Overview
S15-Flavobacteria ribosomal protein leader: a 66-nucleotide RNA from Flavobacterium rivuli.
[Rfam]
RNA sequence: UACCUUUGCAUCCAAAUCAGGGAUAUUCCCUGGCUACAUAAUAAUCAUUUAAAUAAUAUUAGCAUG
Numbered sequence: 001u002a003c004c005u006u007u008g009c010a011u012c013c014a015a016a017u018c019a020g021g022g023a024u025a026u027u028c029c030c031u032g033g034c035u036a037c038a039u040a041a042u043a044a045u046c047a048u049u050u051a052a053a054u055a056a057u058a059u060u061a062g063c064a065u066g
Stems, first nucleotide, its partner, number of pairs: 017033005

Source information: Rfam classes the family as a cis-regulatory leader.